[Rfam]
RNA sequence: GGGUUUAACUCCUGCUUGUUACCGUUUCAUCCGACCGGAGUCAGAUGUCGUUUUGGUGUCUGAUUCGGUAAGGAACCGGGAGCACCAUCUGCGUAGGCUUGAGGUUUAAGACUUGCGUCGCCUACGGUCUUGGAUAGCCCCCGCCAGGCAGGGACCCCAAUCUUUAAAACGGAGCGGCAAACAACGCCGCGCCA
Numbered sequence: 001g002g003g004u005u006u007a008a009c010u011c012c013u014g015c016u017u018g019u020u021a022c023c024g025u026u027u028c029a030u031c032c033g034a035c036c037g038g039a040g041u042c043a044g045a046u047g048u049c050g051u052u053u054u055g056g057u058g059u060c061u062g063a064u065u066c067g068g069u070a071a072g073g074a075a076c077c078g079g080g081a082g083c084a085c086c087a088u089c090u091g092c093g094u095a096g097g098c099u100u101g102a103g104g105u106u107u108a109a110g111a112c113u114u115g116c117g118u119c120g121c122c123u124a125c126g127g128u129c130u131u132g133g134a135u136a137g138c139c140c141c142c143g144c145c146a147g148g149c150a151g152g153g154a155c156c157c158c159a160a161u162c163u164u165u166a167a168a169a170c171g172g173a174g175c176g177g178c179a180a181a182c183a184a185c186g187c188c189g190c191g192c193c194a
Stems, first nucleotide, its partner, number of pairs: 002157002005154002011148004023050002028047004033042003054087006060079003064075003091144003096139004104135010176193003
The family of this 194-nucleotide RNA from Pseudomonas syringae group genomosp. 3 is "Pseudomonas sRNA P27".
Rfam classes the family as a small RNA.
A reference for the family is Livny et al. (2006), "Identification of 17 Pseudomonas aeruginosa sRNAs and prediction of sRNA-encoding genes in 10 diverse pathogens using the bioinformatic tool sRNAPredict2", Nucleic Acids Res.